[Rfam]
RNA sequence: CGAGCAGAUGGCCUUAUCGUUCCGUCUCGAUAGCUAUCGGGAUUCGGGAAGGAAAGUCCGGACACCACAGAGAAGCAUAGCGGCUAACGGCCGUCUGCCGUGAGGUAAGGACAAGUGCAACAGAAAGAAUGUACAGGUAAUGCUGUAGUGAAAUCAGGUAAACUCUAUGCGGUGAAAUGUCAUGUAAACCAACGUUUGAGGUUGCUCGACCGAUGUUGGAGGGUAGACAGCUAAAGGUUUUUGGCAACAAAAACCGUAGAUAAAUGAUAAGGGUUUUCGCAAGAAAAUACAGAAUCCGGCUUAUACAUCUGCUCUUUUU
Numbered sequence: 001c002g003a004g005c006a007g008a009u010g011g012c013c014u015u016a017u018c019g020u021u022c023c024g025u026c027u028c029g030a031u032a033g034c035u036a037u038c039g040g041g042a043u044u045c046g047g048g049a050a051g052g053a054a055a056g057u058c059c060g061g062a063c064a065c066c067a068c069a070g071a072g073a074a075g076c077a078u079a080g081c082g083g084c085u086a087a088c089g090g091c092c093g094u095c096u097g098c099c100g101u102g103a104g105g106u107a108a109g110g111a112c113a114a115g116u117g118c119a120a121c122a123g124a125a126a127g128a129a130u131g132u133a134c135a136g137g138u139a140a141u142g143c144u145g146u147a148g149u150g151a152a153a154u155c156a157g158g159u160a161a162a163c164u165c166u167a168u169g170c171g172g173u174g175a176a177a178u179g180u181c182a183u184g185u186a187a188a189c190c191a192a193c194g195u196u197u198g199a200g201g202u203u204g205c206u207c208g209a210c211c212g213a214u215g216u217u218g219g220a221g222g223g224u225a226g227a228c229a230g231c232u233a234a235a236g237g238u239u240u241u242u243g244g245c246a247a248c249a250a251a252a253a254c255c256g257u258a259g260a261u262a263a264a265u266g267a268u269a270a271g272g273g274u275u276u277u278c279g280c281a282a283g284a285a286a287a288u289a290c291a292g293a294a295u296c297c298g299g300c301u302u303a304u305a306c307a308u309c310u311g312c313u314c315u316u317u318u319u
Stems, first nucleotide, its partner, number of pairs: 002314009011304001012272007020049005027042002054302003058299005063174004070207003075170005080094005095109001096107004110165002115163002117159002132147005178229004189219005200211004236255008